[Rfam]
RNA sequence: UUAAUUAAUGGUGAUGAGGUUCACCAAUUUGAAAUGCCUAAAUAAUUUUUUCUUAAUUAUUUUGGAUGAUGACCUCUACAAAACA
Numbered sequence: 001u002u003a004a005u006u007a008a009u010g011g012u013g014a015u016g017a018g019g020u021u022c023a024c025c026a027a028u029u030u031g032a033a034a035u036g037c038c039u040a041a042a043u044a045a046u047u048u049u050u051u052c053u054u055a056a057u058u059a060u061u062u063u064g065g066a067u068g069a070u071g072a073c074c075u076c077u078a079c080a081a082a083a084c085a
Base pairs, nucleotide, nucleotide: 010025011024012023013022016076017075018074019073020072021071037065038064
Rfam assigns this 85-nucleotide sequence to the family "Fluoride riboswitch aptamer (crcB RNA motif)". A search with the family's covariance model found it, with a score of 36 bits. Pairs were carried over by alignment from the consensus structure, which is taken from published work. Rfam links the family to the GO terms positive regulation of gene expression and response to fluoride.